[Rfam]
RNA sequence: GGAUGUGAGGGCGAUCUGGCUGCGACAUCUGUCACCUCAUUGAUCGCCAGGGUUGAUUCAGCUGAUCUGGCUGGCUAGGCGGGUGUCUCCUUCCUCCCUCAACGAUCCAUGUGCGUCCCUCCCGAAGCUGCACGCUUGGUCGAAGAGGACGACCACCCUCGAUAGAGGAGGACCGUUCCUCGGUCAAGGGUAUACGAGUAGCUGCGCUCCCCUGCUAGAACCUCCAAACAAGCUCUCAAAAAGAUCUUGGUAAGAUAAACAAGUUAGUUAGUUCAAAAAUUGACUGAAAUUUAUAAUAAUCACACCAAAGUAAAUGGGUCUAGGAUAAUGAUAAACCUUUAUUUAU
Number, nucleotide and partner (000 for none) at each position: 001g108002g107003a106004u000005g000006u101007g100008a099009g098010g097011g096012c000013g093014a092015u000016c000017u000018g090019g089020c000021u000022g000023c000024g087025a086026c085027a084028u083029c082030u081031g080032u079033c078034a000035c074036c073037u070038c069039a068040u000041u000042g067043a066044u065045c064046g062047c061048c000049a000050g000051g000052g000053u000054u000055g000056a000057u000058u000059c000060a000061g047062c046063u000064g045065a044066u043067c042068u039069g038070g037071c000072u000073g036074g035075c000076u000077a000078g033079g032080c031081g030082g029083g028084u027085g026086u025087c024088u000089c019090c018091u000092u014093c013094c000095u000096c011097c010098c009099u008100c007101a006102a000103c000104g000105a000106u003107c002108c001109a000110u000111g000112u000113g000114c000115g000116u171117c170118c168119c167120u166121c165122c139123c138124g137125a136126a000127g135128c134129u000130g000131c000132a000133c000134g128135c127136u125137u124138g123139g122140u162141c161142g160143a000144a000145g000146a000147g158148g157149a000150c000151g000152a000153c000154c000155a000156c000157c148158c147159u000160c142161g141162a140163u000164a000165g121166a120167g119168g118169a000170g117171g116172a000173c000174c000175g000176u000177u000178c000179c000180u000181c000182g000183g000184u000185c000186a000187a000188g000189g000190g000191u000192a000193u000194a000195c000196g000197a000198g000199u000200a000201g272202c271203u270204g000205c000206g000207c267208u266209c000210c000211c263212c000213u261214g260215c000216u000217a000218g000219a000220a000221c000222c000223u255224c254225c000226a000227a000228a251229c250230a248231a247232g246233c000234u000235c000236u000237c000238a000239a000240a000241a000242a000243g000244a000245u000246c232247u231248u230249g000250g229251u228252a000253a000254g224255a223256u000257a000258a000259a000260c214261a213262a000263g211264u000265u000266a208267g207268u000269u000270a203271g202272u201273u000274c000275a000276a000277a000278a000279a000280u000281u000282g000283a000284c000285u000286g000287a000288a000289a000290u000291u000292u000293a346294u345295a344296a000297u341298a340299a339300u000301c000302a000303c000304a000305c000306c000307a000308a000309a000310g000311u000312a000313a000314a000315u000316g000317g000318g000319u000320c000321u000322a000323g000324g000325a000326u000327a000328a000329u000330g000331a000332u000333a000334a000335a000336c000337c000338u000339u299340u298341a297342u000343u000344u295345a294346u293
Rfam assigns this 346-nucleotide RNA sequence from Octodon degus to the family "7SK RNA". Rfam's curators write: 7SK was discovered as an abundant small nuclear RNA in the mid-70s but a possible function has only recently been suggested. Rfam classes the family as a non-coding RNA gene.